The record is a 130-nucleotide RNA sequence from Crocodylus porosus, which matches "Small nucleolar RNA SNORA65" in Rfam. About the family: U65 belongs to the H/ACA class of snoRNAs which are thought to guide the sites of modification of uridines to pseudouridines. It is annotated as an H/ACA-box small nucleolar RNA. Taxonomically the source falls in Crocodylus (Eukaryota, Opisthokonta, Sarcopterygii, Archelosauria). The family's consensus secondary structure was predicted with RNAalifold. The literature on the family includes a 2001 paper in EMBO J by Huttenhofer et al., "RNomics: an experimental approach that identifies 201 candidates for novel, small, non-messenger RNAs in mouse".
[Rfam]
RNA sequence: CCCGCCACUAUACCUGUCUUAAACUUGAGUGACUGGUAUAUUCCAGUGGUGAGCUAAGAACAAUCCCCAACUUAGGAAGCAGGGCUCUUCUUUCUGUGAAGAUCUCUGUGCCGAAAAGUUGGGAACAAGU
Numbered sequence: 001c002c003c004g005c006c007a008c009u010a011u012a013c014c015u016g017u018c019u020u021a022a023a024c025u026u027g028a029g030u031g032a033c034u035g036g037u038a039u040a041u042u043c044c045a046g047u048g049g050u051g052a053g054c055u056a057a058g059a060a061c062a063a064u065c066c067c068c069a070a071c072u073u074a075g076g077a078a079g080c081a082g083g084g085c086u087c088u089u090c091u092u093u094c095u096g097u098g099a100a101g102a103u104c105u106c107u108g109u110g111c112c113g114a115a116a117a118g119u120u121g122g123g124a125a126c127a128a129g130u
Stems, first nucleotide, its partner, number of pairs: 005049005018036002023030002065123003069120001072116002075112002080108005088100003